[Rfam]
RNA: Fluoride riboswitch aptamer (crcB RNA motif)
RNA sequence: UUCAGCGCGGGCGAUGGCGUCCGCCCGGGGCUUCGAGCCCGAACCGCUCGAAAGGGCUGAUGACGCCUGUUCUACU
Dot-bracket structure: .........[[[[..((((((]]]]....................((((....))))....)))))).........